[Rfam]
RNA sequence: GUUGAGGAGAAUGUUGUCUGAUUCAAUAUCAUUCAUGUAAGGCUCUAACACUAUCUGAAUGAUUUCGGAUCAGGCUUCAUUCUCCUCAAC
Dot-bracket structure: (((((((((((((..((((((..(.(......................................).)..))))))..)))))))))))))